[Rfam]
RNA sequence: CAUGAGUUCCAAGCCAUAGCAGAAGUGCCCACAGUAUAGCUAUGUCAGAUUCCAACAGAUCUGUGAUUUCUGCU
Numbered sequence: 001c002a003u004g005a006g007u008u009c010c011a012a013g014c015c016a017u018a019g020c021a022g023a024a025g026u027g028c029c030c031a032c033a034g035u036a037u038a039g040c041u042a043u044g045u046c047a048g049a050u051u052c053c054a055a056c057a058g059a060u061c062u063g064u065g066a067u068u069u070c071u072g073c074u
Stems, first nucleotide, its partner, number of pairs: 013040002018074007025037003046063006
RNA: Mammalian CPEB3 ribozyme
Organism: Crocodylus porosus